[Rfam]
RNA sequence: AAUUAUCCGUCGGGGGGCCUUUUUAGGCUGAGAGAUUUUAAUAUCGACCCGUCGAACCUGAUCCGGACAAUGCCGGCGUAGGGAACGGGUAUUCGCAUUUU
Numbered sequence: 001a002a003u004u005a006u007c008c009g010u011c012g013g014g015g016g017g018c019c020u021u022u023u024u025a026g027g028c029u030g031a032g033a034g035a036u037u038u039u040a041a042u043a044u045c046g047a048c049c050c051g052u053c054g055a056a057c058c059u060g061a062u063c064c065g066g067a068c069a070a071u072g073c074c075g076g077c078g079u080a081g082g083g084a085a086c087g088g089g090u091a092u093u094c095g096c097a098u099u100u101u
Base pairs, nucleotide, nucleotide: 006089007088008087009086010085011051012050013049014048016045017028018027019026020025035044036043057082058081059080060079063076064075065074066073
RNA: TPP riboswitch aptamer (THI element)